A member of the RNA family "DUF3800-VIII RNA" from Emticicia sp. TH156, 67 nucleotides long.
Rfam classes the family as a small RNA.

RNA sequence: AGAACUCUGUAGCUAUCCGAAGCCCCACGUUCCACGUAGGAGAUUCAUGUAGGUAGAACGGAGUUCU
Numbered sequence: 001a002g003a004a005c006u007c008u009g010u011a012g013c014u015a016u017c018c019g020a021a022g023c024c025c026c027a028c029g030u031u032c033c034a035c036g037u038a039g040g041a042g043a044u045u046c047a048u049g050u051a052g053g054u055a056g057a058a059c060g061g062a063g064u065u066c067u
Base pairs, nucleotide, nucleotide: 001067002066003065004064005063006062007061008060009059010058013056014055017053018052024040025039027037028036029035030034

Taxonomically the source falls in Emticicia (Bacteria, Pseudomonadati, Bacteroidota, Cytophagia). Bacteroidetes, Cyanobacteria, Firmicutes, Planctomycetes (1 example), Proteobacteria, Tenericutes (1 example).